[Rfam]
RNA sequence: AUUUCCAACGAAGCUUUUGGAAAGUCGUUUGGACCCGGGUUCGAUACCCGGCUGCUCCACAUUUAGUCGGAGAAGAUUGAUUAAUGAUCGCUUCUCCGGCAAGCCAAAUUUCAACGGGGCAGACAGGCUUUGACAGCGAACGGAAGAGAGUGGAGGAAAUACAGCCAUAACAGGCAAAACAAUUCAACUUUUCGAUGCACCGCUAAGAGUGGCAGCAUAG
Number, nucleotide and partner (000 for none) at each position: 001a160002u159003u158004u157005c156006c000007a000008a000009c000010g000011a000012a000013g000014c150015u149016u148017u147018u000019g000020g000021a000022a000023a000024g000025u139026c138027g137028u000029u136030u135031g134032g000033a000034c000035c051036c050037g049038g048039g047040u000041u000042c000043g000044a000045u000046a000047c039048c038049c037050g036051g035052c122053u121054g120055c119056u118057c117058c116059a000060c000061a000062u000063u000064u000065a000066g000067u000068c000069g000070g000071a000072g000073a000074a000075g000076a000077u000078u000079g000080a000081u000082u000083a000084a000085u000086g000087a000088u000089c000090g000091c000092u000093u000094c000095u000096c000097c000098g000099g000100c000101a000102a000103g000104c000105c000106a000107a000108a000109u000110u000111u000112c000113a000114a000115c000116g058117g057118g056119g055120c054121a053122g052123a000124c000125a000126g000127g000128c000129u000130u000131u000132g000133a000134c031135a030136g029137c027138g026139a025140a000141c000142g000143g000144a000145a000146g000147a017148g016149a015150g014151u000152g000153g000154a000155g000156g005157a004158a003159a002160u001161a000162c000163a000164g000165c000166c000167a000168u000169a000170a000171c000172a000173g000174g000175c000176a000177a000178a000179a000180c000181a000182a000183u000184u000185c000186a000187a000188c000189u000190u000191u000192u000193c000194g000195a000196u000197g000198c000199a000200c000201c000202g000203c000204u000205a000206a000207g000208a000209g000210u000211g000212g000213c000214a000215g000216c000217a000218u000219a000220g000
RNA: permuted transfer-messenger RNA